[Rfam]
RNA sequence: CUCUGGAAAGUCGGACGCCACCCGCGUCCGCGCCCACGGUGCAAGCCGCUUCGGCGGUGAACCUCUCAGGCCACGUGACAGAG
Numbered sequence: 001c002u003c004u005g006g007a008a009a010g011u012c013g014g015a016c017g018c019c020a021c022c023c024g025c026g027u028c029c030g031c032g033c034c035c036a037c038g039g040u041g042c043a044a045g046c047c048g049c050u051u052c053g054g055c056g057g058u059g060a061a062c063c064u065c066u067c068a069g070g071c072c073a074c075g076u077g078a079c080a081g082a083g
Stems, first nucleotide, its partner, number of pairs: 001083005012030004032071003036066001039065001041063001045058002